[Rfam]
RNA: Glycine riboswitch aptamer
RNA sequence: ACGAUCCCUGUGGGAGAGACCGUCUCUCGAAGACGGCGCCGAAGGAGCAACCGGCCCCGGAAACUCUCAGGCAAACGGACCGCAGGAGGAUG
Numbered sequence: 001a002c003g004a005u006c007c008c009u010g011u012g013g014g015a016g017a018g019a020c021c022g023u024c025u026c027u028c029g030a031a032g033a034c035g036g037c038g039c040c041g042a043a044g045g046a047g048c049a050a051c052c053g054g055c056c057c058c059g060g061a062a063a064c065u066c067u068c069a070g071g072c073a074a075a076c077g078g079a080c081c082g083c084a085g086g087a088g089g090a091u092g
Stems, first nucleotide, its partner, number of pairs: 007086007020036004038072003041068002045066003051059001